[Rfam]
RNA sequence: CAGGCGCGCAUGGGAGAGCCCGGGCGAACGCAGCCGCCCGGCGCCGAAGGAGCAACCGCCCCGGAAACUCUCAGGCCAAGGGACCGUGCGCGCUAU
Numbered sequence: 001c002a003g004g005c006g007c008g009c010a011u012g013g014g015a016g017a018g019c020c021c022g023g024g025c026g027a028a029c030g031c032a033g034c035c036g037c038c039c040g041g042c043g044c045c046g047a048a049g050g051a052g053c054a055a056c057c058g059c060c061c062c063g064g065a066a067a068c069u070c071u072c073a074g075g076c077c078a079a080g081g082g083a084c085c086g087u088g089c090g091c092g093c094u095a096u
Stems, first nucleotide, its partner, number of pairs: 006091008020041007043076003046072002050070003056064002
Dot-bracket structure: .....((((((((......(((((((........))))))).(((((..(((...((.....))...))))).))).......)))))))).....